Record summary
U4 spliceosomal RNA: a 158-nucleotide RNA sequence from Octopus sinensis. Rfam's curators write: U4 small nuclear RNA (U4 snRNA) is a component of the major U2-dependent spliceosome.
[Rfam]
RNA sequence: CACCUUGGGCGCAGAGGUGGUACCAUGGCCAAUGAGGUAAAUCCGAGGCGUGGUUAUUGCUAGUUGAAAACUUUGGGCAAGUGUCUCCUACUAUAGCCUCGGGCCGACCAAAACCUUGUGAGUGGAUUUGGUAGACGGAAACUGAAAAAAAAGCCCGU
Numbered sequence: 001c002a003c004c005u006u007g008g009g010c011g012c013a014g015a016g017g018u019g020g021u022a023c024c025a026u027g028g029c030c031a032a033u034g035a036g037g038u039a040a041a042u043c044c045g046a047g048g049c050g051u052g053g054u055u056a057u058u059g060c061u062a063g064u065u066g067a068a069a070a071c072u073u074u075g076g077g078c079a080a081g082u083g084u085c086u087c088c089u090a091c092u093a094u095a096g097c098c099u100c101g102g103g104c105c106g107a108c109c110a111a112a113a114c115c116u117u118g119u120g121a122g123u124g125g126a127u128u129u130g131g132u133a134g135a136c137g138g139a140a141a142c143u144g145a146a147a148a149a150a151a152a153g154c155c156c157g158u
Stems, first nucleotide, its partner, number of pairs: 022054005028049003036044002086139003089133005095127001097125002
Lineage of the source: Eukaryota > Metazoa > Protostomia > Cephalopoda > Octopus. It is annotated as a spliceosomal small nuclear RNA. The family is grouped with related families in Rfam's "U4 clan".